[Rfam]
RNA sequence: AAAUUACCUGUGAUAAGGCUAGUAGCAAUAUAAAAGUUUAAGAGAAUCAGCGGUUGGUGUGAGUUGAUACUGUAGUAUUGUGAAUCCACCUUGGAGGGACUGUUAACAUCAGUACGGUGAUACCGAUAUAAUCGUAGAGUGAAUCAAGUUACUUGAUUAAUUAGGGUGGCAACACGGAGUCUUUCGUCCCUUUA
Numbered sequence: 001a002a003a004u005u006a007c008c009u010g011u012g013a014u015a016a017g018g019c020u021a022g023u024a025g026c027a028a029u030a031u032a033a034a035a036g037u038u039u040a041a042g043a044g045a046a047u048c049a050g051c052g053g054u055u056g057g058u059g060u061g062a063g064u065u066g067a068u069a070c071u072g073u074a075g076u077a078u079u080g081u082g083a084a085u086c087c088a089c090c091u092u093g094g095a096g097g098g099a100c101u102g103u104u105a106a107c108a109u110c111a112g113u114a115c116g117g118u119g120a121u122a123c124c125g126a127u128a129u130a131a132u133c134g135u136a137g138a139g140u141g142a143a144u145c146a147a148g149u150u151a152c153u154u155g156a157u158u159a160a161u162u163a164g165g166g167u168g169g170c171a172a173c174a175c176g177g178a179g180u181c182u183u184u185c186g187u188c189c190c191u192u193u194a
Base pairs, nucleotide, nucleotide: 007097008096015092016091017090018089025081026080027079028078029077030076035071036070037069046068047067048066049065050064051063099113100112101111102110104108115125116124117123142158143157144156145155146154147153148152163191164190165189166188174187175186176185177184178183